[Rfam]
Shown here is a 376-nucleotide sequence from Glaciihabitans tibetensis, a member of the family "transfer-messenger RNA". A search with the family's covariance model found it, with a score of 159 bits. Bacterial tmRNA, also known as 10Sa RNA or SsrA, is named for its dual tRNA and mRNA-like properties. By type it is a non-coding RNA gene.
Nucleotides: 376
Stems, first nucleotide, its partner, number of pairs: 001372007019345005025340003033332005043320005048068005055082006122139002126135003154190006161181003165178002170202006207235009219250005253291005260286003265280001267278001272311002277306001349365005
Number, partner (000 for none) and nucleotide at each position: 001372g002371g003370g004369g005368a006367u007366g008000a009000u010000c011000g012000g013000u014000u015000u016000c017000g018000a019345c020344a021343u022342u023341g024000c025340c026339u027338g028000c029000a030000a031000a032000a033332c034331u035330g036329c037328g038000a039000g040000a041000a042000g043320c044319g045318g046317g047316u048068c049067g050066a051065g052064g053000a054000u055082u056081c057080a058079g059078g060077g061000u062000u063000a064052u065051c066050u067049c068048g069000u070000a071000a072000a073000c074000g075000a076000u077060c078059u079058c080057u081056g082055a083000a084000a085000a086000c087000a088000a089000u090000a091000a092000g093000u094000g095000c096000g097000a098000a099000a100000u101000c102000u103000a104000a105000c106000c107000g108000c109000g110000c111000u112000g113000a114000c115000u116000u117000c118000g119000c120000u121000c122139u123138u124000g125000c126135u127134g128133c129000a130000u131000a132000a133128g134127c135126a136000a137000a138123a139122g140000c141000a142000c143000u144000a145000a146000a147000u148000g149000a150000a151000g152000u153000c154190c155189g156188u157187c158186g159185g160000u161181c162180c163179g164000g165178g166177g167000a168000u169000g170202c171201u172200c173199u174198c175197u176000a177166c178165c179163c180162g181161g182000g183000u184000g185159c186158c187157g188156g189155c190154g191000c192000a193000a194000u195000u196000u197175a198174g199173a200172g201171a202170g203000a204000u205000u206000g207235c208234u209233g210232c211231g212230u213229a214228g215227u216000u217000a218000c219250g220249c221248c222247u223246g224000a225000g226000g227215g228214c229213u230212a231211c232210g233209c234208g235207g236000g237000a238000c239000u240000u241000g242000a243000a244000c245000u246223c247222g248221g249220g250219c251000u252000g253291g254290g255289c256288u257287c258000g259000u260286u261285g262284a263000c264000c265280u266000a267278g268000g269000u270000g271000c272311u273310u274000g275000u276000g277306g278267c279000a280265a281000a282000g283000g284262u285261c286260a287257g288256a289255g290254c291253c292000g293000a294000g295000u296000a297000g298000a299000a300000c301000g302000u303000c304000u305000g306277c307000a308000c309000a310273a311272g312000a313000u314000a315000c316047a317046c318045c319044c320043g321000u322000a323000g324000a325000a326000g327000g328037c329036g330035u331034g332033g333000a334000a335000u336000u337000a338027c339026a340025g341023c342022a343021g344020u345019g346000g347000a348000c349365c350364g351363g352362g353361g354000u355000u356000c357000a358000a359000u360000u361353c362352c363351c364350c365349g366007c367006a368005u369004c370003u371002c372001c373000a374000c375000c376000a